[Rfam]
RNA sequence: GGUAAAGGAGCAACACCAAAUCUCUUGAUAUAACAAGAAAUUUAGUAUUGCUCCUUUACU
Numbered sequence: 001g002g003u004a005a006a007g008g009a010g011c012a013a014c015a016c017c018a019a020a021u022c023u024c025u026u027g028a029u030a031u032a033a034c035a036a037g038a039a040a041u042u043u044a045g046u047a048u049u050g051c052u053c054c055u056u057u058a059c060u
Stems, first nucleotide, its partner, number of pairs: 004057010015046001019042002023038005
Plastid-psbA-4 3UTR RNA: a 60-nucleotide sequence from Rosa rugosa. On this family, see Richter et al., Plant Commun 2023: "Retrograde signaling in plants: A critical review focusing on the GUN pathway and beyond". The family is grouped with related families in Rfam's "Plastid-psbA 3UTR RNA clan". Pairs were carried over by alignment from the consensus structure, which was predicted with LocARNA. Rfam describes the family as follows. Plastid psbA-4 is a non-coding RNA (ncRNA) present in plastids. It was identified in inverted repeat sequences in the 3 prime untranslate region (3UTR) of photosystem II quinone-binding protein (psbA). The family's RNA type in Rfam is cis-regulatory element.